A member of the RNA family "L2-Alphaproteobacteria ribosomal protein leader" from Poseidonocella sedimentorum, 92 nucleotides long. NCBI's taxonomy places the organism under Bacteria, Pseudomonadati, Pseudomonadota, Roseobacteraceae, Poseidonocella. The match comes from Rfam's covariance-model search (54 bits). For this family Rfam cites "Discovery of 20 novel ribosomal leader candidates in bacteria and archaea" (Eckert and Weinberg, BMC Microbiol, 2020). The family's consensus secondary structure is taken from published work. It is annotated as a cis-regulatory leader.
RNA sequence: GGGCACCUUCGGGGGCCUAUACCAGGCGGGUCCAUCGCGACCCCACACAUAGCGGGAGUUUUCUCUCGCGUUUGCUAAACGGAAGACAGAAA
Numbered sequence: 001g002g003g004c005a006c007c008u009u010c011g012g013g014g015g016c017c018u019a020u021a022c023c024a025g026g027c028g029g030g031u032c033c034a035u036c037g038c039g040a041c042c043c044c045a046c047a048c049a050u051a052g053c054g055g056g057a058g059u060u061u062u063c064u065c066u067c068g069c070g071u072u073u074g075c076u077a078a079a080c081g082g083a084a085g086a087c088a089g090a091a092a
Base pairs, nucleotide, nucleotide: 001018002017003016004015006014007013008012026069027068028067029066030065